RNA sequence: AAUGAUACUUCCCUGAACCUGUCUAUAAGGGCCCGCGAAGAAGGAAAAGCGGGGGAAUGCCCGCCGCGUUUGAAAUAGAAUGCGGCCGGAUUCC
Number, nucleotide and partner (000 for none) at each position: 001a000002a000003u000004g000005a000006u000007a000008c000009u000010u000011c031012c030013c029014u028015g000016a000017a000018c000019c000020u000021g000022u000023c000024u000025a000026u000027a000028a014029g013030g012031g011032c053033c052034c051035g050036c049037g000038a000039a000040g000041a000042a000043g000044g000045a000046a000047a000048a000049g036050c035051g034052g033053g032054g094055g093056a092057a091058u000059g000060c089061c000062c000063g086064c000065c000066g083067c082068g081069u080070u079071u000072g000073a000074a000075a000076u000077a000078g000079a070080a069081u068082g067083c066084g000085g000086c063087c000088g000089g060090a000091u057092u056093c055094c054
dinG RNA: a 94-nucleotide RNA sequence. The sequence is in the family's curated seed alignment.